A member of the RNA family "S4-Flavobacteria ribosomal protein leader", 37 nucleotides long. It is annotated as a cis-regulatory leader.
RNA sequence: AAACUAAAGGAUUAACGUAAGACCUUAAUUAGUUUUU
Number, nucleotide and partner (000 for none) at each position: 001a037002a034003a033004c032005u031006a030007a026008a025009g024010g023011a000012u000013u000014a000015a000016c000017g000018u000019a000020a000021g000022a000023c010024c009025u008026u007027a000028a000029u000030u006031a005032g004033u003034u002035u000036u000037u001